Annotation
The record is a 103-nucleotide sequence from Alteribacillus iranensis, which matches "Purine riboswitch aptamer" in Rfam. Lineage of the source: Bacteria > Bacillati > Bacilli > Bacillaceae > Alteribacillus. The base pairs follow the family's consensus structure, which is taken from published work.

RNA sequence: AAUGAAAAUUAUAUAAAACCUCGUAUAAUUUCGGGAAUAAGGCCUGAAAAGUUUCUACCCGGGAACCGUAAAUUUCCGGACUAUGAGGGAAAGAUAAGCCAUG
Numbered sequence: 001a002a003u004g005a006a007a008a009u010u011a012u013a014u015a016a017a018a019c020c021u022c023g024u025a026u027a028a029u030u031u032c033g034g035g036a037a038u039a040a041g042g043c044c045u046g047a048a049a050a051g052u053u054u055c056u057a058c059c060c061g062g063g064a065a066c067c068g069u070a071a072a073u074u075u076c077c078g079g080a081c082u083a084u085g086a087g088g089g090a091a092a093g094a095u096a097a098g099c100c101a102u103g
Base pairs, nucleotide, nucleotide: 019088020087021086022085023084024083025082029049030048031047032046033045034044035043059079060078061077062076063075064074065073